purD RNA motif: a 126-nucleotide RNA from Campylobacter upsaliensis. Lineage of the source: Bacteria > Pseudomonadati > Campylobacteraceae > Campylobacter > Campylobacter upsaliensis. By type it is a cis-regulatory element.
RNA sequence: GUGCGAUUUACCGUGUCUGUGGCGUCGUUUGAGUUUCGAAAGAAGCGAGAAGUUGCAGCCUUUAAAAAUUGCCUAGCGACUUUUUUGACUUUUUGGGGUCAAUCUUUGUAAAACGGCUACUUGGGU
Numbered sequence: 001g002u003g004c005g006a007u008u009u010a011c012c013g014u015g016u017c018u019g020u021g022g023c024g025u026c027g028u029u030u031g032a033g034u035u036u037c038g039a040a041a042g043a044a045g046c047g048a049g050a051a052g053u054u055g056c057a058g059c060c061u062u063u064a065a066a067a068a069u070u071g072c073c074u075a076g077c078g079a080c081u082u083u084u085u086u087g088a089c090u091u092u093u094u095g096g097g098g099u100c101a102a103u104c105u106u107u108g109u110a111a112a113a114c115g116g117c118u119a120c121u122u123g124g125g126u
Stems, first nucleotide, its partner, number of pairs: 003072007017058005023052001025050002033046004085102007